Rfam assigns this 348-nucleotide RNA from Thiopseudomonas denitrificans to the family "rne-II RNA". By type it is a cis-regulatory element. The source organism's lineage runs through Bacteria, Pseudomonadota, Pseudomonadales, Pseudomonadaceae and Thiopseudomonas.
[Rfam]
RNA sequence: ACAUGUGUAGGGUGGAGAUGCACCGAACCCGGGCGGGUACAGCCCCAGAUACUGACAGGGCAAUCAAUGUACGCUGCCGGGCGGAUUCCUCCUCCUGGUAAAUGCACUCCGGUGCGGAGCAGCACGCCAUGUGUAUGCGGCCCGCAGUCCGGCAGACAGUAGAGAUUGCUGCUCCGGUCAGACCGUGUGCAUGAACCGGCUACAGGCCAGAAGCCGCACAGCCGGAGACGCAGUCGCGCGGAACAUACAGGUUCCGUUGCUGGACACGAUUGGGUAUACCCAAUUGCGCGCACCCAACACAAUCUGGAAGGGGUCGAGUGCCAAUGCUUUUCCGUGACACGGAAUGUA
Numbered sequence: 001a002c003a004u005g006u007g008u009a010g011g012g013u014g015g016a017g018a019u020g021c022a023c024c025g026a027a028c029c030c031g032g033g034c035g036g037g038u039a040c041a042g043c044c045c046c047a048g049a050u051a052c053u054g055a056c057a058g059g060g061c062a063a064u065c066a067a068u069g070u071a072c073g074c075u076g077c078c079g080g081g082c083g084g085a086u087u088c089c090u091c092c093u094c095c096u097g098g099u100a101a102a103u104g105c106a107c108u109c110c111g112g113u114g115c116g117g118a119g120c121a122g123c124a125c126g127c128c129a130u131g132u133g134u135a136u137g138c139g140g141c142c143c144g145c146a147g148u149c150c151g152g153c154a155g156a157c158a159g160u161a162g163a164g165a166u167u168g169c170u171g172c173u174c175c176g177g178u179c180a181g182a183c184c185g186u187g188u189g190c191a192u193g194a195a196c197c198g199g200c201u202a203c204a205g206g207c208c209a210g211a212a213g214c215c216g217c218a219c220a221g222c223c224g225g226a227g228a229c230g231c232a233g234u235c236g237c238g239c240g241g242a243a244c245a246u247a248c249a250g251g252u253u254c255c256g257u258u259g260c261u262g263g264a265c266a267c268g269a270u271u272g273g274g275u276a277u278a279c280c281c282a283a284u285u286g287c288g289c290g291c292a293c294c295c296a297a298c299a300c301a302a303u304c305u306g307g308a309a310g311g312g313g314u315c316g317a318g319u320g321c322c323a324a325u326g327c328u329u330u331u332c333c334g335u336g337a338c339a340c341g342g343a344a345u346g347u348a
Stems, first nucleotide, its partner, number of pairs: 014092004023084003028081005033074003036046002055070003093226003097222001229290003233265003236260003239256006269284006297319002300316001301314001304312001330344006